[Rfam]
RNA sequence: AAACCCUUUUAAGAACAGUCCAGAGAGGCUGCAAAGGGGCGCACAUUGGAAGGUGGUCAUUAGAAUAAUGAUUGCUGGCCUCUUUGUACCUCUUUGCCUUAGGAUUAAGCAAAGAGGUUUUUUUAUG
Numbered sequence: 001a002a003a004c005c006c007u008u009u010u011a012a013g014a015a016c017a018g019u020c021c022a023g024a025g026a027g028g029c030u031g032c033a034a035a036g037g038g039g040c041g042c043a044c045a046u047u048g049g050a051a052g053g054u055g056g057u058c059a060u061u062a063g064a065a066u067a068a069u070g071a072u073u074g075c076u077g078g079c080c081u082c083u084u085u086g087u088a089c090c091u092c093u094u095u096g097c098c099u100u101a102g103g104a105u106u107a108a109g110c111a112a113a114g115a116g117g118u119u120u121u122u123u124u125a126u127g
Stems, first nucleotide, its partner, number of pairs: 004038006016031005050081001052079001054077004059072004086120001088118010
Shown here is a 127-nucleotide sequence, a member of the family "PyrR binding site". It scores 66 bits against the family's covariance model. Rfam describes the family as follows. This family represents the PyrR binding site and terminator structure. This RNA structure is found upstream of a variety of genes involved in pyrimidine biosynthesis and transport. The alignment also includes a portion of the antiterminator structure.